[Rfam]
RNA sequence: GGGAGUGAGAGGACCGCUGACAGAGUUCGACUCUGAGGAAAGUCCCCUCUCCAUAGCGCAGGUGGUUCACAGAAGUGAAAGAUCAGAGAUGGUCAGGUCAAUGCCACAGAAACGAUACGAUACCAGGUGUGUACAAUGAUGUUGAAAGACGGAGGUUGCCUGAAUGUCGAUGGAACGAGCAACCCCACUGGAGCAAGUCCAAAUCGUCCCGCUUAUGUUGCACGCACAGGGACAGGUAGGAUGCUAAGUUGAAUGCGGUCGCCGAAAGGUAACAAAAAGGGGCUUACUCCUCACUCCC
Numbered sequence: 001g002g003g004a005g006u007g008a009g010a011g012g013a014c015c016g017c018u019g020a021c022a023g024a025g026u027u028c029g030a031c032u033c034u035g036a037g038g039a040a041a042g043u044c045c046c047c048u049c050u051c052c053a054u055a056g057c058g059c060a061g062g063u064g065g066u067u068c069a070c071a072g073a074a075g076u077g078a079a080a081g082a083u084c085a086g087a088g089a090u091g092g093u094c095a096g097g098u099c100a101a102u103g104c105c106a107c108a109g110a111a112a113c114g115a116u117a118c119g120a121u122a123c124c125a126g127g128u129g130u131g132u133a134c135a136a137u138g139a140u141g142u143u144g145a146a147a148g149a150c151g152g153a154g155g156u157u158g159c160c161u162g163a164a165u166g167u168c169g170a171u172g173g174a175a176c177g178a179g180c181a182a183c184c185c186c187a188c189u190g191g192a193g194c195a196a197g198u199c200c201a202a203a204u205c206g207u208c209c210c211g212c213u214u215a216u217g218u219u220g221c222a223c224g225c226a227c228a229g230g231g232a233c234a235g236g237u238a239g240g241a242u243g244c245u246a247a248g249u250u251g252a253a254u255g256c257g258g259u260c261g262c263c264g265a266a267a268g269g270u271a272a273c274a275a276a277a278a279g280g281g282g283c284u285u286a287c288u289c290c291u292c293a294c295u296c297c298c
Stems, first nucleotide, its partner, number of pairs: 001298003005294005010288002012260006021035005040285003044282005049193004056223001058221002061189005066079005081094004096184002102181003118169003121164001124162005141150002197242004206233005
The record is a 298-nucleotide RNA, which matches "Archaeal RNase P" in Rfam. The family is grouped with related families in Rfam's "RNaseP clan". The family's RNA type in Rfam is ribozyme. The sequence is in the family's curated seed alignment. For this family Rfam cites "Ribonuclease P: unity and diversity in a tRNA processing ribozyme" (Frank and Pace, Annu Rev Biochem, 1998).